[Rfam]
RNA sequence: GCACGAUAAAGGCAAACCCCGAGUGAUCGGGGGACGCAAAGGAAAGGGUCUUUAAUCCGCUUACAUAGCAUGCACUGCAAUAACAAAGCACUUUAGAUAGAGUAUCAGGUUUAAAGAUAGCCUUACUACCGAA
Numbered sequence: 001g002c003a004c005g006a007u008a009a010a011g012g013c014a015a016a017c018c019c020c021g022a023g024u025g026a027u028c029g030g031g032g033g034a035c036g037c038a039a040a041g042g043a044a045a046g047g048g049u050c051u052u053u054a055a056u057c058c059g060c061u062u063a064c065a066u067a068g069c070a071u072g073c074a075c076u077g078c079a080a081u082a083a084c085a086a087a088g089c090a091c092u093u094u095a096g097a098u099a100g101a102g103u104a105u106c107a108g109g110u111u112u113a114a115a116g117a118u119a120g121c122c123u124u125a126c127u128a129c130c131g132a133a
Stems, first nucleotide, its partner, number of pairs: 012037002017032006040127002043124001045123003048118003055112001
A member of the RNA family "c-di-GMP-I riboswitch aptamer" from a Candidatus Brocadiaceae bacterium, 133 nucleotides long. Its family is annotated with cyclic-di-GMP binding in the Gene Ontology. It scores 57 bits against the family's covariance model. The family's consensus secondary structure is taken from published work. The organism belongs to Candidatus Brocadiaceae, within Bacteria.